Nucleotides: 109
Base pairs, nucleotide, nucleotide: 044102045101046100048098049097055090057088058087059086060085062082063081064080065079
Number, partner (000 for none) and nucleotide at each position: 001000c002000a003000u004000g005000u006000u007000u008000a009000u010000a011000u012000g013000c014000g015000a016000c017000a018000a019000g020000g021000a022000u023000c024000u025000u026000c027000c028000a029000a030000a031000g032000c033000u034000c035000a036000c037000a038000a039000a040000a041000u042000c043000a044102g045101u046100g047000c048098u049097g050000u051000c052000a053000u054000c055090a056000c057088c058087u059086u060085u061000g062082u063081c064080u065079c066000u067000g068000c069000u070000u071000c072000a073000a074000c075000a076000u077000c078000a079065g080064a081063g082062a083000u084000c085060g086059g087058a088057g089000u090055u091000g092000a093000a094000a095000a096000a097049c098048a099000a100046c101045a102044c103000a104000a105000c106000a107000u108000u109000u

The record is a 109-nucleotide RNA sequence from Digitaria exilis, which matches "Small nucleolar RNA snoR97" in Rfam. The base pairs follow the family's consensus structure, which was predicted with WAR. A reference for the family is Marker et al. (2002), "Experimental RNomics: identification of 140 candidates for small non-messenger RNAs in the plant Arabidopsis thaliana", Curr Biol.